The family of this 115-nucleotide RNA sequence from Cephalotus follicularis is "small nucleolar RNA snoR126". The family's consensus secondary structure was predicted with RNAalifold. It is annotated as a C/D-box small nucleolar RNA. The literature on the family includes a 2009 paper in Nucleic Acids Res by Chen and Wu, "Mining small RNA sequencing data: a new approach to identify small nucleolar RNAs in Arabidopsis". Its family is annotated with RNA processing and nucleolus in the Gene Ontology.

RNA sequence: AGGCGAUGAUGACAAUAAUUACAUUUCUCGAUACUGAUUUCCUCAGUGUAUGCAAACUAUGUUUGUUUAUAUGGAUUUGGUUUUUGAUGACUGUAUUUAUGCGUGUCUGAGCCUU
Number, nucleotide and partner (000 for none) at each position: 001a114002g113003g112004c111005g000006a000007u000008g000009a000010u000011g000012a000013c000014a000015a000016u000017a000018a000019u000020u000021a000022c000023a000024u000025u000026u000027c000028u000029c000030g000031a000032u000033a000034c000035u000036g000037a000038u000039u000040u000041c000042c000043u000044c000045a000046g000047u000048g000049u000050a000051u000052g000053c000054a000055a000056a000057c000058u000059a000060u000061g000062u000063u000064u000065g000066u000067u000068u000069a000070u000071a000072u000073g000074g000075a000076u000077u000078u000079g000080g000081u000082u000083u000084u000085u000086g000087a000088u000089g000090a000091c000092u000093g000094u000095a000096u000097u000098u000099a000100u000101g000102c000103g000104u000105g000106u000107c000108u000109g000110a000111g004112c003113c002114u001115u000